[Rfam]
RNA sequence: GAUAGAGUAGGCAAGAGGCGUAAAUGUGUUCAGAGAUGGGACGUUGCUCUGAAACGAAAGUUUUAGUAAGUUAAAAACUGCGUUCUCUUUGUCGCGUCCGCUGUC
Numbered sequence: 001g002a003u004a005g006a007g008u009a010g011g012c013a014a015g016a017g018g019c020g021u022a023a024a025u026g027u028g029u030u031c032a033g034a035g036a037u038g039g040g041a042c043g044u045u046g047c048u049c050u051g052a053a054a055c056g057a058a059a060g061u062u063u064u065a066g067u068a069a070g071u072u073a074a075a076a077a078c079u080g081c082g083u084u085c086u087c088u089u090u091g092u093c094g095c096g097u098c099c100g101c102u103g104u105c
Stems, first nucleotide, its partner, number of pairs: 001105005010093004014088005019082003026055002029053007039099005059079006
Dot-bracket structure: (((((....((((((((((((....((.(((((((...[[[[[...)))))))))...((((((.........))))))))).))))).)))).]]]]].)))))
This 105-nucleotide sequence from Halanaerobium sp. DL-01 belongs to the Rfam family "THF (Tetrahydrofolate) riboswitch aptamer".
The source organism's lineage runs through Bacteria, Bacillati, Bacillota, Clostridia and Halanaerobium.
Rfam 15.1 lists 747 matches to the family in 747 species.
About the family: Tetrahydrofolate (THF) riboswitch was first reported for Ames et al. as an RNA motif in 5' untranslated (5'-UTR)regions of folate transport and biosynthesis genes in Firmicutes genomes.
On this family, see Ames et al., Chem Biol 2010: "A eubacterial riboswitch class that senses the coenzyme tetrahydrofolate".
The match comes from Rfam's covariance-model search (63 bits).